[Rfam]
RNA sequence: AUACAGCUAGAUCCAUACCCCUAAACUCCCUAGAUGAUGGAUAGUGCCAUAAUGGCGCUAUCCGCUUUUU
Numbered sequence: 001a002u003a004c005a006g007c008u009a010g011a012u013c014c015a016u017a018c019c020c021c022u023a024a025a026c027u028c029c030c031u032a033g034a035u036g037a038u039g040g041a042u043a044g045u046g047c048c049a050u051a052a053u054g055g056c057g058c059u060a061u062c063c064g065c066u067u068u069u070u
Stems, first nucleotide, its partner, number of pairs: 004036002007033003039063010
Notes:
The family of this 70-nucleotide RNA sequence from Bacillus sp. V3-13 is "Listeria sRNA sbrA". A reference for the family is Toledo-Arana et al. (2009), "The Listeria transcriptional landscape from saprophytism to virulence", Nature. Pairs were carried over by alignment from the consensus structure, which was predicted with WAR.